[Rfam]
RNA sequence: GUGCUGUGAUGAAAAUUUCAUUUGUGUCGGAGACAUUUGGUCUGUGAUGGUUUACACUACCCUCUAAGAAGUUCUGAGCGC
Numbered sequence: 001g002u003g004c005u006g007u008g009a010u011g012a013a014a015a016u017u018u019c020a021u022u023u024g025u026g027u028c029g030g031a032g033a034c035a036u037u038u039g040g041u042c043u044g045u046g047a048u049g050g051u052u053u054a055c056a057c058u059a060c061c062c063u064c065u066a067a068g069a070a071g072u073u074c075u076g077a078g079c080g081c
Base pairs, nucleotide, nucleotide: 001081002080003079004078